[Rfam]
RNA: Small nucleolar RNA SNORD82
RNA sequence: UUUAAUAAUGAUGAGCACAAGGGACUUAAUACUGAUAUUAUGAUGUUACCUUAUCAUUUCUGAAUUGU
Numbered sequence: 001u002u003u004a005a006u007a008a009u010g011a012u013g014a015g016c017a018c019a020a021g022g023g024a025c026u027u028a029a030u031a032c033u034g035a036u037a038u039u040a041u042g043a044u045g046u047u048a049c050c051u052u053a054u055c056a057u058u059u060c061u062g063a064a065u066u067g068u
Base pairs, nucleotide, nucleotide: 003067004066005065006064